[Rfam]
RNA: Small nucleolar RNA SNORD18
Organism: Cuscuta europaea
RNA sequence: GGGAUGUGAUGAACACUAUUGGUCCGUGUUUCUGAUUACUGUGACUGAUAAACCAAUUUUUGUAUCUGAUCUC
Numbered sequence: 001g002g003g004a005u006g007u008g009a010u011g012a013a014c015a016c017u018a019u020u021g022g023u024c025c026g027u028g029u030u031u032c033u034g035a036u037u038a039c040u041g042u043g044a045c046u047g048a049u050a051a052a053c054c055a056a057u058u059u060u061u062g063u064a065u066c067u068g069a070u071c072u073c
Stems, first nucleotide, its partner, number of pairs: 001073004